[Rfam]
RNA: Bacterial small subunit ribosomal RNA, nucleotides 1 to 581
Nucleotides: 581
Base pairs, nucleotide, nucleotide: 009025010024011023012022013021027571028570029569030568032567033566034565035564036563037562039417040416041415042414043413044412045410046409047375052373053372054371056370057369058368061103062102063101066100067099070095074091075090076089077088078087079086080085110328111327112326119253120252121251122250123249124248125247126246129245130244134241135240136239137238138237139236140235142176143175144174145173151166152165153164154163155162156161182205183204184203185202186201187200188199189198190197191196210233211232212231213230214229215228254300255299256298261291262290263289266288267287268286269285270284271283272282273281303325304324305323306322307318308317309316310315330351331350332349333348334347353364354363355362356361381407383406384405385404389402390401391400392399393398420450421449422448423447430441431440432439433438454512456507457506458505459504460503464498470492471491472490473489474488475487476486515560516559517558518557519556526555527554528553529552530551536543537542
Number, partner (000 for none) and nucleotide at each position: 001000u002000a003000a004000c005000u006000g007000g008000a009025g010024a011023g012022u013021u014000u015000g016000a017000u018000c019000c020000u021013g022012g023011c024010u025009c026000a027571g028570a029569a030568u031000g032567a033566a034565c035564g036563c037562u038000g039417g040416c041415g042414g043413c044412g045410u046409g047375c048000u049000u050000a051000a052373c053372a054371c055000a056370u057369g058368c059000a060000a061103g062102u063101c064000g065000a066100a067099c068000g069000a070095g071000a072000a073000a074091g075090g076089g077088a078087u079086u080085g081000c082000u083000u084000g085080c086079a087078a088077u089076c090075c091074c092000g093000a094000g095070u096000a097000g098000a099067g100066u101063g102062g103061c104000g105000c106000a107000c108000g109000g110328g111327u112326g113000a114000g115000u116000a117000a118000c119253a120252c121251g122250u123249a124248g125247a126246u127000a128000a129245u130244c131000u132000g133000c134241c135240u136239u137238c138237a139236a140235g141000c142176c143175u144174g145173g146000g147000a148000u149000a150000a151166c152165u153164a154163u155162u156161c157000g158000a159000a160000a161156g162155g163154g164153u165152a166151g167000c168000u169000a170000a171000u172000a173145c174144c175143g176142g177000a178000u179000a180000a181000a182205g183204u184203c185202g186201a187200u188199u189198u190197a191196c192000a193000c194000a195000a196191g197190u198189a199188g200187a201186u202185u203184g204183a205182u206000g207000a208000a209000a210233g211232a212231u213230u214229g215228c216000c217000u218000c219000u220000u221000c222000u223000u224000g225000a226000a227000a228215g229214c230213a231212a232211u233210u234000g235140u236139u237138u238137g239136g240135a241134g242000a243000u244130g245129a246126g247125u248124u249123u250122g251121c252120g253119u254300a255299c256298c257000a258000u259000u260000a261291g262290c263289u264000u265000g266288u267287u268286g269285g270284u271283g272282g273281g274000g275000u276000a277000a278000a279000g280000g281273c282272c283271u284270a285269c286268c287267a288266a289263g290262g291261c292000a293000a294000c295000g296000a297000u298256g299255g300254u301000u302000a303325g304324c305323u306322g307318g308317u309316c310315u311000g312000a313000g314000a315310g316309g317308a318307u319000g320000a321000u322306c323305a324304g325303c326112c327111a328110c329000a330351c331350u332349g333348g334347a335000a336000c337000u338000g339000g340000a341000a342000c343000a344000c345000g346000g347334u348333c349332c350331a351330g352000a353364c354363u355362c356361c357000u358000a359000c360000g361356g362355g363354a364353g365000g366000c367000a368058g369057c370056a371054g372053u373052g374000a375047g376000g377000a378000a379000u380000u381407u382000u383406g384405c385404g386000c387000a388000a389402u390401g391400g392399g393398g394000g395000c396000a397000a398393c399392c400391c401390u402389g403000a404385c405384g406383c407381a408000g409046c410045a411000a412044c413043g414042c415041c416040g417039c418000g419000u420450g421449a422448g423447u424000g425000a426000a427000g428000a429000a430441g431440g432439c433438c434000u435000u436000u437000g438433g439432g440431u441430c442000g443000u444000a445000a446000a447423g448422c449421u450420c451000u452000g453000u454512c455000a456507a457506c458505a459504g460503g461000g462000a463000a464498g465000a466000a467000g468000u469000u470492a471491c472490a473489a474488u475487u476486g477000u478000u479000u480000a481000a482000c483000a484000g485000a486476u487475g488474g489473u490472u491471g492470u493000a494000u495000u496000g497000a498464c499000g500000g501000u502000a503460c504459c505458u506457g507456u508000g509000g510000a511000g512454g513000a514000a515560g516559c517558g518557c519556c520000g521000g522000c523000u524000a525000a526555c527554u528553c529552c530551g531000u532000g533000c534000c535000a536543g537542c538000a539000g540000c541000c542537g543536c544000g545000g546000u547000a548000a549000c550000a551530c552529g553528g554527g555526g556519g557518g558517c559516g560515c561000a562037a563036g564035c565034g566033u567032u568030a569029u570028u571027c572000g573000g574000a575000a576000u577000u578000a579000u580000u581000g